[Rfam]
RNA sequence: GGCAAAACAUUGUAUGGAAGACUAGUGAUUUUGUUGUUUGGCUUAUGAUACUAACAAUAAAUCUCUCGUCUUUCUACAAAGUUUGCC
Numbered sequence: 001g002g003c004a005a006a007a008c009a010u011u012g013u014a015u016g017g018a019a020g021a022c023u024a025g026u027g028a029u030u031u032u033g034u035u036g037u038u039u040g041g042c043u044u045a046u047g048a049u050a051c052u053a054a055c056a057a058u059a060a061a062u063c064u065c066u067c068g069u070c071u072u073u074c075u076a077c078a079a080a081g082u083u084u085g086c087c
Base pairs, nucleotide, nucleotide: 001087002086003085004084005083007082008081010079011078012077013076014075016073017072019071020070021069022068025065027063028062029061030060031059033058034057035056036055037054038053